[Rfam]
RNA sequence: GAUCCUGAGUAAUCGCGGUCGGCUUAUGUCGGCUGAGGAAAGUCCAUGCUCGCACAGGCUGCGAUGCCUGUAGUGUUCGUGCUCGGUGAAAAAAUAAGCCGGGGGACGUUAGCAAUAGCGUUACGGCGGGAAAAAACGGCUAAGGCUUCGGCUAUGCUUGAGUAUCCCUGAAAAGUGCCACAGUGACGAUACGCCUAGGGAAACCUAGGCGGUGGAACGCGGUAAACCCCUCGAGCGGGCAACCCAAACUUUUGGUAGGGGCGCUUCACAUAUGGAAUUGAACGAAAUGUGGGGGGAGAGGAAACUCUCGAGAUAGAUGAUUACUGCCAGCUGAUCGUUUGCCUGAAACGGUUGGGUGGUACAAAACAUGGCUUACAGGG
Numbered sequence: 001g002a003u004c005c006u007g008a009g010u011a012a013u014c015g016c017g018g019u020c021g022g023c024u025u026a027u028g029u030c031g032g033c034u035g036a037g038g039a040a041a042g043u044c045c046a047u048g049c050u051c052g053c054a055c056a057g058g059c060u061g062c063g064a065u066g067c068c069u070g071u072a073g074u075g076u077u078c079g080u081g082c083u084c085g086g087u088g089a090a091a092a093a094a095u096a097a098g099c100c101g102g103g104g105g106a107c108g109u110u111a112g113c114a115a116u117a118g119c120g121u122u123a124c125g126g127c128g129g130g131a132a133a134a135a136a137c138g139g140c141u142a143a144g145g146c147u148u149c150g151g152c153u154a155u156g157c158u159u160g161a162g163u164a165u166c167c168c169u170g171a172a173a174a175g176u177g178c179c180a181c182a183g184u185g186a187c188g189a190u191a192c193g194c195c196u197a198g199g200g201a202a203a204c205c206u207a208g209g210c211g212g213u214g215g216a217a218c219g220c221g222g223u224a225a226a227c228c229c230c231u232c233g234a235g236c237g238g239g240c241a242a243c244c245c246a247a248a249c250u251u252u253u254g255g256u257a258g259g260g261g262c263g264c265u266u267c268a269c270a271u272a273u274g275g276a277a278u279u280g281a282a283c284g285a286a287a288u289g290u291g292g293g294g295g296g297a298g299a300g301g302a303a304a305c306u307c308u309c310g311a312g313a314u315a316g317a318u319g320a321u322u323a324c325u326g327c328c329a330g331c332u333g334a335u336c337g338u339u340u341g342c343c344u345g346a347a348a349c350g351g352u353u354g355g356g357u358g359g360u361a362c363a364a365a366a367c368a369u370g371g372c373u374u375a376c377a378g379g380g
Base pairs, nucleotide, nucleotide: 004380005379006378007376008325009324010323011322012321013320014319016035017034018033019032020031021030040374041373042372044371045370046369047368048367049239050238051237052236053235054071055070056069057068058067059066077234078233079232081230082103083102084101085100086099087098104124105122106121107120108119109118110117125229126228128168129167130166131165138158139157140156144153145152146151175227176226177223178222179221192211193210194209195208196207197206198205199204243260244259245258264294265293266292267291268290269289270288296309297308298307299306300305327359328358329357331355332354333353334352335351336350337349338348339347340346
RNA: Bacterial RNase P class B
Organism: Levilactobacillus brevis